[Rfam]
RNA sequence: GAAAUACGGGUCUGUGGUUGCAAGUCGAGGCCAGUCGCAGGCAAAACGAUCCACAUAAGCAGCUCAGAGAGCUGUGAGCAUGGUGCGGCUUAGAUGUAAGUCCUGCCGGGGAACCGAGAGGAGUAGUAGUGGGGAGCCAAGGGCUUAUGAGCGAACCUUCCAGCAGGCGAGUGUGGGGGCAAAGACCAGGUCAGCCGUAUAAC
Numbered sequence: 001g002a003a004a005u006a007c008g009g010g011u012c013u014g015u016g017g018u019u020g021c022a023a024g025u026c027g028a029g030g031c032c033a034g035u036c037g038c039a040g041g042c043a044a045a046a047c048g049a050u051c052c053a054c055a056u057a058a059g060c061a062g063c064u065c066a067g068a069g070a071g072c073u074g075u076g077a078g079c080a081u082g083g084u085g086c087g088g089c090u091u092a093g094a095u096g097u098a099a100g101u102c103c104u105g106c107c108g109g110g111g112a113a114c115c116g117a118g119a120g121g122a123g124u125a126g127u128a129g130u131g132g133g134g135a136g137c138c139a140a141g142g143g144c145u146u147a148u149g150a151g152c153g154a155a156c157c158u159u160c161c162a163g164c165a166g167g168c169g170a171g172u173g174u175g176g177g178g179g180c181a182a183a184g185a186c187c188a189g190g191u192c193a194g195c196c197g198u199a200u201a202a203c
Stems, first nucleotide, its partner, number of pairs: 001203001004200006012194003015188005028174001030172001031041001033090007050083002058075001064069001081181001102167005107116003120160004129152002135145003
RNA: raiA RNA